[Rfam]
RNA sequence: AAACUUACCUGGCUGGAAGACUCUGCUGAUCAUAAACUUACCUGGAUCUUUAGAACGAGGCUUGACCAUUGCACUUUUUGGUUUUCAGGCUGACUUCUAUGGUUAUCCGAAUCGGAUAAACCAACAGCUAAAUUUUUGGGUGUGGAGGAUAGCGUUCGCGCUUCCUCCAU
Numbered sequence: 001a002a003a004c005u006u007a008c009c010u011g012g013c014u015g016g017a018a019g020a021c022u023c024u025g026c027u028g029a030u031c032a033u034a035a036a037c038u039u040a041c042c043u044g045g046a047u048c049u050u051u052a053g054a055a056c057g058a059g060g061c062u063u064g065a066c067c068a069u070u071g072c073a074c075u076u077u078u079u080g081g082u083u084u085u086c087a088g089g090c091u092g093a094c095u096u097c098u099a100u101g102g103u104u105a106u107c108c109g110a111a112u113c114g115g116a117u118a119a120a121c122c123a124a125c126a127g128c129u130a131a132a133u134u135u136u137u138g139g140g141u142g143u144g145g146a147g148g149a150u151a152g153c154g155u156u157c158g159c160g161c162u163u164c165c166u167c168c169a170u
Stems, first nucleotide, its partner, number of pairs: 012128004016051005023045003052098004057094001059091003063087003066081002100123003103119003107115002143169005151162004
RNA: U1 spliceosomal RNA
Organism: Panagrolaimus sp. ES5